The record is a 112-nucleotide sequence from Spirosoma telluris, which matches "SAM riboswitch aptamer (S box leader)" in Rfam. The family's consensus secondary structure is taken from published work. A search with the family's covariance model found it, with a score of 80 bits.

[Rfam]
RNA sequence: AGCUUAUCCAGAAAGACGGAGGGAACGGACCCGAUGAUGUCUUGGCAACCAACCAAUUAUCUACAGGAAAUGGUGCCAAUUUCCUCCCGCUUGUUAGCGGGAUAGAUAAGAC
Numbered sequence: 001a002g003c004u005u006a007u008c009c010a011g012a013a014a015g016a017c018g019g020a021g022g023g024a025a026c027g028g029a030c031c032c033g034a035u036g037a038u039g040u041c042u043u044g045g046c047a048a049c050c051a052a053c054c055a056a057u058u059a060u061c062u063a064c065a066g067g068a069a070a071u072g073g074u075g076c077c078a079a080u081u082u083c084c085u086c087c088c089g090c091u092u093g094u095u096a097g098c099g100g101g102a103u104a105g106a107u108a109a110g111a112c
Stems, first nucleotide, its partner, number of pairs: 003110006013043005021032003027084003044077004049073002053067002081104001086101006